[Rfam]
RNA sequence: CGAUAAUUUUUUUAAAUACGCACACAUAUCAUCACCUUAGUAACUGGGUGCCUCGAACAGGGUUUUUUCUCUGGAUCAGGUUGUUGCAAGGGGUAUGUGGAGGCCUAAC
Numbered sequence: 001c002g003a004u005a006a007u008u009u010u011u012u013u014a015a016a017u018a019c020g021c022a023c024a025c026a027u028a029u030c031a032u033c034a035c036c037u038u039a040g041u042a043a044c045u046g047g048g049u050g051c052c053u054c055g056a057a058c059a060g061g062g063u064u065u066u067u068u069c070u071c072u073g074g075a076u077c078a079g080g081u082u083g084u085u086g087c088a089a090g091g092g093g094u095a096u097g098u099g100g101a102g103g104c105c106u107a108a109c
Base pairs, nucleotide, nucleotide: 023099024098025097026096027095028094029093030092036090037089038088040087041086042085043084044083050081051080052079053078
Rfam assigns this 109-nucleotide sequence from endosymbiont of Galathealinum brachiosum to the family "t44 RNA". From the family's description: This family consists of a number of bacterial RNA genes of between 135 and 170 bases in length. The t44 gene has been identified in several species of enteric bacteria but homologs have also been identified in Pseudomonas and Coxiella species. The t44 gene is found between the map and rpsB genes in all species in the full alignment apart from Shigella flexneri. On this family, see Tjaden et al., Nucleic Acids Res 2002: "Transcriptome analysis of Escherichia coli using high-density oligonucleotide probe arrays". By type it is a small RNA. The organism belongs to sulfur-oxidizing symbionts, within Bacteria.